[Rfam]
RNA sequence: GAUUGGUUGGCUGUGUUGUUGGCUGUGUUGUUGCUUCCAAUCAAGAAGCAACAACACAGCCAACAACACAGCCAACCAAUC
Dot-bracket structure: .(((((..((.(((((((((((.((.(((((((((...........))))))))).)).))))))))))).))..))))).
A member of the RNA family "mir-34 microRNA precursor family" from Naja naja, 81 nucleotides long. Its Rfam clan is "mir-34 clan". The literature on the family includes a 2003 paper in Science by Lim et al., "Vertebrate microRNA genes". From the family's description: Human mir-34a was discovered computationally and later experimentally verified. The mature sequence is excised from the 5' arm of the hairpin. The source organism's lineage runs through Eukaryota, Tetrapoda, Sauria, Bifurcata and Naja. Rfam 15.1 lists 2,256 matches to the family in 820 species. Its family is annotated with RISC complex and miRNA-mediated post-transcriptional gene silencing in the Gene Ontology.